This 102-nucleotide RNA from Pan troglodytes belongs to the Rfam family "Y RNA". The family has 104 seed sequences and 26,986 matches in Rfam 15.1. About the family: Y RNAs are components of the Ro ribonucleoprotein particle (Ro RNP), in association with Ro60 and La proteins. The Y RNAs and Ro60 and La proteins are well conserved, but the function of the Ro RNP is not known. In humans the RNA component can be one of four small RNAs -- hY1, hY3, hY4 and hY5. These small RNAs are predicted to fold into a conserved secondary structure containing three stem structures. The largest of the four, hY1, contains an additional hairpin. This family includes a significant number of annotated pseudogenes and the model is expected to discriminate poorly between real and Y RNA related pseudogenes. It is annotated as a non-coding RNA gene. The family's consensus secondary structure is taken from published work. Taxonomically the source falls in Pan (Eukaryota, Opisthokonta, Deuterostomia, Catarrhini). For this family Rfam cites "Ro ribonucleoproteins contribute to the resistance of Deinococcus radiodurans to ultraviolet irradiation" (Chen et al., Genes Dev, 2000).

RNA sequence: AGCUGGUCUGAGUGCAGGGUUAUUUACAACUAAUUGACCACACCGACUUACAGAUUUUUUUGUUCCUUGUCCACUUCUACUGCUUCACUUGAGUAGCCUUAA
Numbered sequence: 001a002g003c004u005g006g007u008c009u010g011a012g013u014g015c016a017g018g019g020u021u022a023u024u025u026a027c028a029a030c031u032a033a034u035u036g037a038c039c040a041c042a043c044c045g046a047c048u049u050a051c052a053g054a055u056u057u058u059u060u061u062g063u064u065c066c067u068u069g070u071c072c073a074c075u076u077c078u079a080c081u082g083c084u085u086c087a088c089u090u091g092a093g094u095a096g097c098c099u100u101a102a
Stems, first nucleotide, its partner, number of pairs: 002097004007092002010090002014086001016081002018077002028064003032060002